[Rfam]
RNA: Metazoan signal recognition particle RNA
RNA sequence: CCUAUGGUCCCACUGAAUUCUAUGGCCCAGCUACUCGGGAGGCUGAGCUCGCCGGAUCGCUUGAUCCCAGGAGUUCUGGGCUGCAGUGCGCUAUGCUGAGCGGGCGUCCGCGCUAAGGCCGGCAUCAAUAUGGUGAGCCUCGGGGAGCCGGGGCACACCAGGUUGCCUAAGGAGGGGUGAACCGGCCCAGGUCGGAAACGGAGCAGGUCAAAAAUCCCGUGCCGGUCAGUAGCGGGAUCGCGCCUGUGAAUAGCCACUGCAGCAUAGCCUGGGCAACACAGAGAGACGCGGGUUCCU
Numbered sequence: 001c002c003u004a005u006g007g008u009c010c011c012a013c014u015g016a017a018u019u020c021u022a023u024g025g026c027c028c029a030g031c032u033a034c035u036c037g038g039g040a041g042g043c044u045g046a047g048c049u050c051g052c053c054g055g056a057u058c059g060c061u062u063g064a065u066c067c068c069a070g071g072a073g074u075u076c077u078g079g080g081c082u083g084c085a086g087u088g089c090g091c092u093a094u095g096c097u098g099a100g101c102g103g104g105c106g107u108c109c110g111c112g113c114u115a116a117g118g119c120c121g122g123c124a125u126c127a128a129u130a131u132g133g134u135g136a137g138c139c140u141c142g143g144g145g146a147g148c149c150g151g152g153g154c155a156c157a158c159c160a161g162g163u164u165g166c167c168u169a170a171g172g173a174g175g176g177g178u179g180a181a182c183c184g185g186c187c188c189a190g191g192u193c194g195g196a197a198a199c200g201g202a203g204c205a206g207g208u209c210a211a212a213a214a215u216c217c218c219g220u221g222c223c224g225g226u227c228a229g230u231a232g233c234g235g236g237a238u239c240g241c242g243c244c245u246g247u248g249a250a251u252a253g254c255c256a257c258u259g260c261a262g263c264a265u266a267g268c269c270u271g272g273g274c275a276a277c278a279c280a281g282a283g284a285g286a287c288g289c290g291g292g293u294u295c296c297u
Stems, first nucleotide, its partner, number of pairs: 001042002006021002026039003045295008057284002060281002066273006076267003080263009090254005096248001100247008108236002111234005117227009126165004131160005137154007166172002174217003178213001184209004192201003